MIR2275 microRNA precursor family: a 95-nucleotide RNA from Corchorus capsularis. A search with the family's covariance model found it, with a score of 66 bits.

RNA sequence: AUGCUGUAUGUGAGAAUUGGAGGGAACUAAUUAAGCUGUUAAUAAAAGCCAUAUAUAUGCUUAUUUAGUUUCCUCCAAUAUCUCAUAUCCAGUCU
Numbered sequence: 001a002u003g004c005u006g007u008a009u010g011u012g013a014g015a016a017u018u019g020g021a022g023g024g025a026a027c028u029a030a031u032u033a034a035g036c037u038g039u040u041a042a043u044a045a046a047a048g049c050c051a052u053a054u055a056u057a058u059g060c061u062u063a064u065u066u067a068g069u070u071u072c073c074u075c076c077a078a079u080a081u082c083u084c085a086u087a088u089c090c091a092g093u094c095u
Stems, first nucleotide, its partner, number of pairs: 004092003008088001011085004016079006023072008032063004